[Rfam]
The record is a 69-nucleotide sequence from Crocodylus porosus, which matches "Mammalian CPEB3 ribozyme" in Rfam. The source organism's lineage runs through Eukaryota, Sauria, Crocodylia, Longirostres and Crocodylus.
RNA sequence: UGAGGGAGGGGGCCAUAGCAGAAGUGUUCACAUUGCAACCCCUAUCAGGAAAUACCUGCAAAUUUUCCU
Number, nucleotide and partner (000 for none) at each position: 001u000002g000003a000004g000005g000006g000007a000008g000009g042010g041011g040012g039013c000014c000015a000016u000017a069018g068019c000020a066021g065022a064023a063024g036025u035026g034027u000028u000029c000030a000031c000032a000033u000034u026035g025036c024037a000038a000039c012040c011041c010042c009043u000044a000045u000046c058047a057048g056049g055050a000051a000052a000053u000054a000055c049056c048057u047058g046059c000060a000061a000062a000063u023064u022065u021066u020067c000068c018069u017